The family of this 79-nucleotide RNA from Hucho hucho is "mir-23 microRNA precursor family". Its family is annotated with RISC complex and gene silencing by miRNA in the Gene Ontology. Rfam 15.1 lists 1,403 matches to the family in 646 species.
RNA sequence: GGUGGGGAGGGUUCCUGGCACAGUGAUUUGGUGCACAAAUAUAAACGAAAAUCACAUUGCCAGGGAUUUCCACCCUCAC
Numbered sequence: 001g002g003u004g005g006g007g008a009g010g011g012u013u014c015c016u017g018g019c020a021c022a023g024u025g026a027u028u029u030g031g032u033g034c035a036c037a038a039a040u041a042u043a044a045a046c047g048a049a050a051a052u053c054a055c056a057u058u059g060c061c062a063g064g065g066a067u068u069u070c071c072a073c074c075c076u077c078a079c
Base pairs, nucleotide, nucleotide: 002079004077005075006074009071010070011067012066013065014064015063016062017061018060019059020058023055024054025053026052027051028050029049
Lineage of the source: Eukaryota > Eumetazoa > Chordata > Euteleosteomorpha > Hucho. The match comes from Rfam's covariance-model search (63 bits).